[Rfam]
RNA: U4atac minor spliceosomal RNA
Organism: Megaselia scalaris
RNA sequence: UCAAUCCUUGUCUUGGGGAGCAUAGUAUUCUAUGAAGUUGAACUGAGAAUAUUUUGCUGACACCAAAUUUUAAAAACAACCCCCUUUUCAAUUACUGAACUGGGAAUUUUUGUACGA
Number, nucleotide and partner (000 for none) at each position: 001u000002c000003a000004a000005u019006c018007c017008u016009u015010g000011u000012c000013u000014u000015g009016g008017g007018g006019a005020g057021c056022a055023u000024a053025g052026u051027a050028u049029u048030c047031u000032a000033u000034g000035a000036a044037g043038u000039u000040g000041a000042a000043c037044u036045g000046a000047g030048a029049a028050u027051a026052u025053u024054u000055u022056g021057c020058u000059g000060a000061c000062a000063c000064c000065a000066a000067a000068u000069u000070u000071u000072a000073a000074a000075a000076a000077c000078a000079a000080c000081c000082c000083c000084c102085u000086u000087u099088u098089c097090a096091a000092u000093u000094a000095c000096u090097g089098a088099a087100c000101u000102g084103g000104g000105a000106a000107u000108u000109u000110u000111u000112g000113u000114a000115c000116g000117a000